Annotation:
Rfam assigns this 47-nucleotide RNA sequence to the family "DUF3800-XI RNA".
Nucleotides: 047
Stems, first nucleotide, its partner, number of pairs: 001026006007018004
Number, partner (000 for none) and nucleotide at each position: 001026u002025g003024g004023g005022c006021u007018g008017g009016u010015c011000g012000a013000a014000a015010g016009a017008c018007c019000c020000a021006g022005g023004u024003c025002c026001a027000u028000c029000u030000u031000u032000g033000g034000c035000g036000g037000g038000c039000c040000a041000g042000a043000c044000g045000c046000u047000c
It is one of the family's seed sequences. Rfam's curators write: Actinobacteria, Firmicutes, Proteobacteria, Spirochaetes (1 example). It is annotated as a small RNA.